The family of this 74-nucleotide sequence from Psychromonas sp. psych-6C06 is "tRNA". The base pairs follow the family's consensus structure, which is taken from published work. It is annotated as a transfer RNA.

[Rfam]
RNA sequence: GGCCCCUUAGCUCAGUUGGUUAGAGCAUACGACUCAUAAUCGUCAGGUCCCCCGUUCAAGUCGGGGAGGGGCCA
Numbered sequence: 001g002g003c004c005c006c007u008u009a010g011c012u013c014a015g016u017u018g019g020u021u022a023g024a025g026c027a028u029a030c031g032a033c034u035c036a037u038a039a040u041c042g043u044c045a046g047g048u049c050c051c052c053c054g055u056u057c058a059a060g061u062c063g064g065g066g067a068g069g070g071g072c073c074a
Stems, first nucleotide, its partner, number of pairs: 001073007010026004029043004050066005